[Rfam]
Record summary: The record is a 59-nucleotide sequence from Salarias fasciatus, which matches "Selenocysteine insertion sequence 1" in Rfam. On this family, see Lambert et al., Biochimie 2002: "A survey of metazoan selenocysteine insertion sequences". Gene Ontology term of the family: selenocysteine incorporation. By type it is a cis-regulatory element. Lineage of the source: Eukaryota > Clupeocephala > Ovalentaria > Blennioidei > Salarias.
RNA sequence: CUUUUUACAUGACGACCACAGUGCAAACCUCUCGUCGCUGUGGUUUGAUGACUUAAAAG
Numbered sequence: 001c002u003u004u005u006u007a008c009a010u011g012a013c014g015a016c017c018a019c020a021g022u023g024c025a026a027a028c029c030u031c032u033c034g035u036c037g038c039u040g041u042g043g044u045u046u047g048a049u050g051a052c053u054u055a056a057a058a059g
Stems, first nucleotide, its partner, number of pairs: 001059005014045010029034001